[Rfam]
RNA sequence: GUGCUUCCAAUAGGAAUUGAGCUUAUGAAUUCGCCAAUUAUGAGUUGGGCUUUUUAACCAUUUAGCCAUGGAUGC
Numbered sequence: 001g002u003g004c005u006u007c008c009a010a011u012a013g014g015a016a017u018u019g020a021g022c023u024u025a026u027g028a029a030u031u032c033g034c035c036a037a038u039u040a041u042g043a044g045u046u047g048g049g050c051u052u053u054u055u056a057a058c059c060a061u062u063u064a065g066c067c068a069u070g071g072a073u074g075c
Stems, first nucleotide, its partner, number of pairs: 003075002006072003010026005040069003044066006
Plastid-ycf2 5UTR RNA: a 75-nucleotide RNA sequence from Gossypium stocksii.
On this family, see Richter et al., Plant Commun 2023: "Retrograde signaling in plants: A critical review focusing on the GUN pathway and beyond".
Plastid ycf2 is a non-coding RNA (ncRNA) recognised in plastids.
By type it is a cis-regulatory element.